A member of the RNA family "Small nucleolar RNA Z105" from Nyssa sinensis, 75 nucleotides long.
Pairs were carried over by alignment from the consensus structure, which was predicted with CMfinder.
For this family Rfam cites "The high diversity of snoRNAs in plants: identification and comparative study of 120 snoRNA genes from Oryza sativa" (Chen et al., Nucleic Acids Res, 2003).
The source organism's lineage runs through Eukaryota, Mesangiospermae, Gunneridae, Pentapetalae and Nyssa.
Its family is annotated with RNA processing and nucleolus in the Gene Ontology.
Rfam 15.1 lists 621 matches to the family in 204 species.

[Rfam]
RNA sequence: GGGGCAUAAUGACGAUGACAAUAAUUGUAUUCUGAAUUUUAGUGAUUGAAUCAAUUAACCUCCUACUCAUUCUGA
Numbered sequence: 001g002g003g004g005c006a007u008a009a010u011g012a013c014g015a016u017g018a019c020a021a022u023a024a025u026u027g028u029a030u031u032c033u034g035a036a037u038u039u040u041a042g043u044g045a046u047u048g049a050a051u052c053a054a055u056u057a058a059c060c061u062c063c064u065a066c067u068c069a070u071u072c073u074g075a
Base pairs, nucleotide, nucleotide: 006070007069009067030049033044